[Rfam]
The family of this 504-nucleotide part of an RNA from Encephalitozoon cuniculi is "Microsporidia small subunit ribosomal RNA".
RNA sequence: UGACGGAAGGACACCACAAGGAGUGGAGUGUGCGGCUUAAUUUGACUCAACGCGGGGCAACUUACCGGCUCUGAAGGAUGCCUGUGAGUGCAUGGCAUGAGGCAUGCGGCGGUGGUGCAUGGCCGUUUUAAAUGGAUGGCGUGAGCUUUGUCUUAAGUUGCGUAAGAUGUGAGACCCUUUGACGGUGUUCUACGGAGCAAGGAGGGGAUGGAAAAGAACAGGUCCGUUAUGCCCUGAGAUGAGGCGGGCUGCACGCGCACUACGAUAGAUGGCGCUUCUGCCUGCUGUGAGGGAUGAAGCUGUGUAAGGGGCUUCUGAACGUGGAAUUCCUAGUAAUAGCGGCUGACGAAGCUGCUUUGAAUGUGUCCCUGUCCUUUGUACACACCGCCCGUCGCUAUCUAAGAUGACGCACUGGACGAAGAUCGGAAGGUCUGAGUCCUGAGUGUUAGAUAAGAUAUAAGUCGUAACAUGGCUGCUGUUGGAGAACCAUUAGCAGGAUCAUAA
Numbered sequence: 001u002g003a004c005g006g007a008a009g010g011a012c013a014c015c016a017c018a019a020g021g022a023g024u025g026g027a028g029u030g031u032g033c034g035g036c037u038u039a040a041u042u043u044g045a046c047u048c049a050a051c052g053c054g055g056g057g058c059a060a061c062u063u064a065c066c067g068g069c070u071c072u073g074a075a076g077g078a079u080g081c082c083u084g085u086g087a088g089u090g091c092a093u094g095g096c097a098u099g100a101g102g103c104a105u106g107c108g109g110c111g112g113u114g115g116u117g118c119a120u121g122g123c124c125g126u127u128u129u130a131a132a133u134g135g136a137u138g139g140c141g142u143g144a145g146c147u148u149u150g151u152c153u154u155a156a157g158u159u160g161c162g163u164a165a166g167a168u169g170u171g172a173g174a175c176c177c178u179u180u181g182a183c184g185g186u187g188u189u190c191u192a193c194g195g196a197g198c199a200a201g202g203a204g205g206g207g208a209u210g211g212a213a214a215a216g217a218a219c220a221g222g223u224c225c226g227u228u229a230u231g232c233c234c235u236g237a238g239a240u241g242a243g244g245c246g247g248g249c250u251g252c253a254c255g256c257g258c259a260c261u262a263c264g265a266u267a268g269a270u271g272g273c274g275c276u277u278c279u280g281c282c283u284g285c286u287g288u289g290a291g292g293g294a295u296g297a298a299g300c301u302g303u304g305u306a307a308g309g310g311g312c313u314u315c316u317g318a319a320c321g322u323g324g325a326a327u328u329c330c331u332a333g334u335a336a337u338a339g340c341g342g343c344u345g346a347c348g349a350a351g352c353u354g355c356u357u358u359g360a361a362u363g364u365g366u367c368c369c370u371g372u373c374c375u376u377u378g379u380a381c382a383c384a385c386c387g388c389c390c391g392u393c394g395c396u397a398u399c400u401a402a403g404a405u406g407a408c409g410c411a412c413u414g415g416a417c418g419a420a421g422a423u424c425g426g427a428a429g430g431u432c433u434g435a436g437u438c439c440u441g442a443g444u445g446u447u448a449g450a451u452a453a454g455a456u457a458u459a460a461g462u463c464g465u466a467a468c469a470u471g472g473c474u475g476c477u478g479u480u481g482g483a484g485a486a487c488c489a490u491u492a493g494c495a496g497g498a499u500c501a502u503a504a
Base pairs, nucleotide, nucleotide: 001382002381003379004378005377007376008375009374010373011372012371013370016366017365020330021329022328023327024326025263027261028260029259030258031257032256033255034254035252036251041056042055043054044053065247066246067245069243070242071241076107078105079104080103081102088098089097090096091095111235112234114233115232116231117230120229121227122223123222124221125219126218127217128216132170133169134168137165138147139146140145149162150161151160176211177210179208183202186199187198188197189196190195267286268285271282272281291320296315297314298313299312300311301310336358338356339355340354341353342352343351387468390464391463393461396457397456398455399454400453402451405448406447407446408445409444410443412441414439415438416437417436420433421432422431423430424429473496474495475494476493477492478491480489481488482487